[Rfam]
RNA: Molybdenum/Tungsten riboswitch aptamer (Moco RNA motif)
Organism: Pseudescherichia vulneris
RNA sequence: CGUUACAACACACACUCUAGCCUCUGCGUCUACGUCCCUGGAUAUGAUGCUUUGGCCGUGGCAAUUGCCACCAGGGUGCAGGAAGAAAUGACUGCAUCUCCCGUAUUUGGAAAGGUGUACAUGGCCUCACAGC
Number, nucleotide and partner (000 for none) at each position: 001c000002g000003u000004u000005a000006c124007a000008a000009c000010a000011c000012a118013c117014a116015c115016u000017c114018u000019a000020g056021c055022c054023u000024c000025u000026g050027c049028g048029u047030c046031u000032a000033c000034g043035u042036c041037c000038c000039u000040g000041g036042a035043u034044a000045u000046g030047a029048u028049g027050c026051u000052u000053u000054g022055g021056c020057c000058g071059u070060g069061g068062c067063a000064a000065u000066u000067g062068c061069c060070a059071c058072c000073a000074g099075g098076g097077u096078g095079c094080a093081g092082g000083a000084a089085g000086a000087a000088a000089u084090g000091a000092c081093u080094g079095c078096a077097u076098c075099u074100c110101c109102c000103g000104u000105a000106u000107u000108u000109g101110g100111a000112a000113a000114g017115g015116u014117g013118u012119a000120c000121a000122u000123g000124g006125c000126c000127u000128c000129a000130c000131a000132g000133c000